[Rfam]
RNA sequence: UAGAGAGAUAGAGGAGCAACAUUCACAAGUAUUGUAGUCGAGGAUUAACGAGUCUGUUAACACUACAAAAAAAGGACUGUUGCCGAAGAGAAAAUCUGUCGUUAAGGUUUUUAUCUGGGCAUACAUUGAACAAGUGUAUGACUGUCACGAUUGUGUGGGGCGCUAUCAGAUAA
Numbered sequence: 001u002a003g004a005g006a007g008a009u010a011g012a013g014g015a016g017c018a019a020c021a022u023u024c025a026c027a028a029g030u031a032u033u034g035u036a037g038u039c040g041a042g043g044a045u046u047a048a049c050g051a052g053u054c055u056g057u058u059a060a061c062a063c064u065a066c067a068a069a070a071a072a073a074g075g076a077c078u079g080u081u082g083c084c085g086a087a088g089a090g091a092a093a094a095u096c097u098g099u100c101g102u103u104a105a106g107g108u109u110u111u112u113a114u115c116u117g118g119g120c121a122u123a124c125a126u127u128g129a130a131c132a133a134g135u136g137u138a139u140g141a142c143u144g145u146c147a148c149g150a151u152u153g154u155g156u157g158g159g160g161c162g163c164u165a166u167c168a169g170a171u172a173a
Stems, first nucleotide, its partner, number of pairs: 007167005016083006023076002032068007087116003090112008117143002120140008145158005
Dot-bracket structure: ......(((((....((((((.((.......(((((((.......................)))))))......)).))))))...(((((((((((.......)))))))).)))((.((((((((.....)))))))).)).(((((....)))))....)))))......